Rfam assigns this 149-nucleotide RNA sequence from Gossypium mustelinum to the family "MIR8643 microRNA precursor family". The organism belongs to Gossypium, within Eukaryota.
RNA sequence: AUUUCUUUUAACAUAUUAGGAAGUCGAAUUGGCAGUGAAGAAAGAAGUAGGGAAUCGAGAGCCAUCAUUGCCUAUAACCAAAACCCAUAAAUCCAUACCAUGCUUCUUUCUUCAUUGCCAAUUCAACUUCUUGAUAUGUUAAAAGAAAU
Dot-bracket structure: ...(((((((((((((((.(((((.((((((.((((((((((((((.((.(.....(....................................)....).)).)))))))))))))).)))))).))))).)))))))))))))))...